[Rfam]
Shown here is a 309-nucleotide RNA sequence from Athelia sp. TMB, a member of the family "Group I catalytic intron".
Nucleotides: 309
Base pairs, nucleotide, nucleotide: 070251071250072249073248074247076245077244081192082191083190084189085188086187091183092182093181193231194230198226199225200224201223206219207218208217209216235288237287238286239285240284241283253274254273255272256271257270258269259268260267295306296305297304298303
Number, partner (000 for none) and nucleotide at each position: 001000c002000c003000a004000u005000u006000g007000g008000a009000u010000u011000g012000c013000u014000a015000c016000u017000u018000g019000g020000u021000g022000g023000u024000u025000a026000a027000g028000a029000g030000g031000g032000g033000c034000c035000c036000g037000a038000a039000a040000g041000g042000g043000u044000u045000g046000c047000c048000u049000a050000g051000u052000g053000a054000g055000c056000g057000u058000u059000g060000a061000g062000g063000c064000u065000u066000g067000c068000a069000a070251c071250a072249c073248u074247g075000u076245c077244a078000a079000a080000u081192u082191g083190c084189g085188g086187g087000g088000a089000c090000g091183u092182c093181c094000u095000u096000a097000g098000a099000g100000c101000c102000u103000u104000u105000g106000c107000u108000a109000c110000c111000g112000c113000c114000u115000c116000u117000g118000c119000a120000u121000c122000g123000a124000a125000a126000g127000a128000u129000a130000g131000c132000a133000g134000u135000g136000c137000g138000c139000a140000c141000c142000a143000g144000g145000g146000u147000a148000a149000u150000g151000a152000c153000c154000u155000c156000g157000g158000g159000u160000a161000u162000g163000g164000u165000a166000a167000a168000a169000a170000c171000g172000c173000a174000a175000a176000g177000g178000a179000u180000u181093g182092g183091a184000u185000a186000a187086u188085c189084c190083g191082c192081a193231g194230c195000c196000a197000a198226g199225c200224c201223c202000u203000a204000a205000u206219g207218g208217c209216c210000u211000u212000c213000a214000g215000u216209g217208g218207u219206c220000u221000a222000c223201g224200g225199g226198u227000g228000c229000a230194g231193u232000u233000c234000a235288c236000a237287g238286a239285c240284u241283a242000a243000a244077u245076g246000g247074c248073a249072g250071u251070g252000g253274g254273u255272g256271u257270g258269c259268u260267g261000g262000a263000g264000u265000u266000g267260u268259g269258g270257c271256a272255u273254g274253c275000u276000u277000a278000a279000g280000a281000u282000a283241u284240a285239g286238u287237c288235g289000g290000u291000c292000c293000u294000a295306c296305c297304g298303c299000g300000a301000a302000a303298g304297c305296g306295g307000g308000c309000u
Pairs were carried over by alignment from the consensus structure, which is taken from published work. The family has 12 seed sequences and 5,602 matches in Rfam 15.1.